[Rfam]
Rfam assigns this 76-nucleotide RNA sequence from Ignelater luminosus to the family "mir-971 microRNA precursor family".
The base pairs follow the family's consensus structure, which was predicted with RNAalifold.
A search with the family's covariance model found it, with a score of 58 bits.
The source organism's lineage runs through Eukaryota, Panarthropoda, Pancrustacea, Hexapoda and Ignelater.

Nucleotides: 076
Stems, first nucleotide, its partner, number of pairs: 007070001009068005015062003025052008
Number, partner (000 for none) and nucleotide at each position: 001000u002000a003000g004000u005000c006000g007070g008000g009068u010067c011066a012065c013064u014000c015062u016061a017060a018000g019000u020000u021000u022000g023000a024000a025052c026051a027050c028049c029048a030047a031046g032045c033000u034000a035000u036000u037000u038000u039000c040000a041000g042000c043000u044000c045032g046031u047030u048029u049028g050027g051026u052025g053000u054000u055000c056000u057000a058000c059000c060017u061016u062015a063000c064013a065012g066011u067010g068009a069000g070007c071000a072000g073000a074000c075000u076000g